About this RNA:
Rfam assigns this 117-nucleotide RNA from Pseudomonas sp. 21C1 to the family "Pseudomon-groES RNA". Taxonomically the source falls in Pseudomonas (Bacteria, Pseudomonadota, Pseudomonadales, Pseudomonadaceae). The base pairs follow the family's consensus structure, which is taken from published work.
[Rfam]
RNA sequence: GUACCGGUCACCGCAAGGUUUUCUGCUGUUGCAGCAGAUCAGACUUUCGCGUUGCGCCUCUGGUGCAGCGCACCCGGCAUCGCCGGAUUUUGCUAACCCGCUGGUGAAUGCACCAGC
Numbered sequence: 001g002u003a004c005c006g007g008u009c010a011c012c013g014c015a016a017g018g019u020u021u022u023c024u025g026c027u028g029u030u031g032c033a034g035c036a037g038a039u040c041a042g043a044c045u046u047u048c049g050c051g052u053u054g055c056g057c058c059u060c061u062g063g064u065g066c067a068g069c070g071c072a073c074c075c076g077g078c079a080u081c082g083c084c085g086g087a088u089u090u091u092g093c094u095a096a097c098c099c100g101c102u103g104g105u106g107a108a109u110g111c112a113c114c115a116g117c
Base pairs, nucleotide, nucleotide: 010019011018012017022038023037024036025035026034049071050070051069052068053067054066055065056064074086075085076084077083100117101116102115103114104113105112